[Rfam]
RNA sequence: UUAUAUUUGUGUUUGGACGCUGUUCAGCACCAGGGACAGGUAUAUUUGUGUUUGGACGCUGUUCAGCACCAAGGACAGUUAUAUUUGUGU
Numbered sequence: 001u002u003a004u005a006u007u008u009g010u011g012u013u014u015g016g017a018c019g020c021u022g023u024u025c026a027g028c029a030c031c032a033g034g035g036a037c038a039g040g041u042a043u044a045u046u047u048g049u050g051u052u053u054g055g056a057c058g059c060u061g062u063u064c065a066g067c068a069c070c071a072a073g074g075a076c077a078g079u080u081a082u083a084u085u086u087g088u089g090u
Stems, first nucleotide, its partner, number of pairs: 004081002007078004019070001021068004026063004031058001034051001036049005
RNA: mir-2060 microRNA precursor family
Organism: Branchiostoma floridae